[Rfam]
RNA sequence: CUGUUUCUGAUUCUUCUGUUUUUAUCUCAUUCAUAAAGAGCAGA
Numbered sequence: 001c002u003g004u005u006u007c008u009g010a011u012u013c014u015u016c017u018g019u020u021u022u023u024a025u026c027u028c029a030u031u032c033a034u035a036a037a038g039a040g041c042a043g044a
Stems, first nucleotide, its partner, number of pairs: 001043006

The family of this 44-nucleotide RNA from Neottia nidus-avis is "Plastid-rpoB 5UTR RNA". The family's consensus secondary structure was predicted with LocARNA. A reference for the family is Richter et al. (2023), "Retrograde signaling in plants: A critical review focusing on the GUN pathway and beyond", Plant Commun. Plastid rpoB is a non-coding RNA (ncRNA) recognised in plastids. It was found in the 5 prime untranslated region (5UTR) of a chloroplast-encoded RNA polymerase subunit (rpoB) in plastids, suggesting a posible cis-regulatory function.